[Rfam]
RNA sequence: UAAUAUUUCUGGGGCAUAUCCUUAUCUAGUUAUCAUACACUUAUACUUGAGUGCUCGAAAUCACUUAUUUUUGCGAGUCCGACUACAUCAUUCUCUCUUAUUCACACAUUAAGGACUUGAAAAUAACAAAAAUGAAGUUUUAUAUCAAAAUUGA
Numbered sequence: 001u002a003a004u005a006u007u008u009c010u011g012g013g014g015c016a017u018a019u020c021c022u023u024a025u026c027u028a029g030u031u032a033u034c035a036u037a038c039a040c041u042u043a044u045a046c047u048u049g050a051g052u053g054c055u056c057g058a059a060a061u062c063a064c065u066u067a068u069u070u071u072u073g074c075g076a077g078u079c080c081g082a083c084u085a086c087a088u089c090a091u092u093c094u095c096u097c098u099u100a101u102u103c104a105c106a107c108a109u110u111a112a113g114g115a116c117u118u119g120a121a122a123a124u125a126a127c128a129a130a131a132a133u134g135a136a137g138u139u140u141u142a143u144a145u146c147a148a149a150a151u152u153g154a
Stems, first nucleotide, its partner, number of pairs: 005151003008147001012143001014141001018138002023134003027129001029127005
Annotation:
Rfam assigns this 154-nucleotide RNA from Populus tomentosa to the family "MIR480 microRNA precursor family". Gene Ontology terms of the family: miRNA-mediated post-transcriptional gene silencing and RISC complex. The family has 69 seed sequences and 3,070 matches in Rfam 15.1.